[Rfam]
RNA sequence: AAUAUCUAAAAAGCGCCAGAACUCUUUAGCGAGUUGACGAGGUUUGGGGAAUAUCGAAUUUUCGGCGGAUGCCCCAAAAGUGUUAAAUCUUCUUAACAUCAUCUUCAGGACAAAACCACCGGGUGACCGAUGGCACAAAUCCAUUCGAAGUCUUAUAAAU
Numbered sequence: 001a002a003u004a005u006c007u008a009a010a011a012a013g014c015g016c017c018a019g020a021a022c023u024c025u026u027u028a029g030c031g032a033g034u035u036g037a038c039g040a041g042g043u044u045u046g047g048g049g050a051a052u053a054u055c056g057a058a059u060u061u062u063c064g065g066c067g068g069a070u071g072c073c074c075c076a077a078a079a080g081u082g083u084u085a086a087a088u089c090u091u092c093u094u095a096a097c098a099u100c101a102u103c104u105u106c107a108g109g110a111c112a113a114a115a116c117c118a119c120c121g122g123g124u125g126a127c128c129g130a131u132g133g134c135a136c137a138a139a140u141c142c143a144u145u146c147g148a149a150g151u152c153u154u155a156u157a158a159a160u
Base pairs, nucleotide, nucleotide: 020035021034022033023032024031045076046075047074048073049072054065055064056063057062081098082097083096084095085094086093103150104149105148106147108145109144116133117132118131120129121128122127
Rfam assigns this 160-nucleotide RNA sequence from Alkalibacter saccharofermentans to the family "glmS glucosamine-6-phosphate activated ribozyme aptamer".